[Rfam]
Notes:
The record is a 114-nucleotide sequence from Parablautia intestinalis, which matches "SAM riboswitch aptamer (S box leader)" in Rfam. NCBI's taxonomy places the organism under Bacteria, Bacillota, Lachnospirales, Lachnospiraceae, Parablautia. It scores 69 bits against the family's covariance model. The SAM riboswitch is found upstream of a number of genes which code for proteins involved in methionine or cysteine biosynthesis in Gram-positive bacteria. The SAM riboswitch acts at the level of transcription termination control. The predicted structure consists of a complex stem-loop region followed by a single stem loop terminator region. An alternative and mutually exclusive form involves bases in the 3' segment of helix 1 with those in the 5' region of helix 5 to form a structure termed the anti-terminator form. This entry represents the conserved core of the complex structure involving helices 1-4. The family's consensus secondary structure is taken from published work.
RNA sequence: CUCUUAUUCAGAGUGGUGGAGGUACAGAGGACCUAUGAAACCACGGCAACCCCGGCAACGGAAGGUGCCUACCUGAGCGAGUAAAUGCCCCUUUGGCAGAUCGAACAAUAAGAG
Numbered sequence: 001c002u003c004u005u006a007u008u009c010a011g012a013g014u015g016g017u018g019g020a021g022g023u024a025c026a027g028a029g030g031a032c033c034u035a036u037g038a039a040a041c042c043a044c045g046g047c048a049a050c051c052c053c054g055g056c057a058a059c060g061g062a063a064g065g066u067g068c069c070u071a072c073c074u075g076a077g078c079g080a081g082u083a084a085a086u087g088c089c090c091c092u093u094u095g096g097c098a099g100a101u102c103g104a105a106c107a108a109u110a111a112g113a114g
Stems, first nucleotide, its partner, number of pairs: 001114008013044005021033003030074001045069004050065002052061003078103003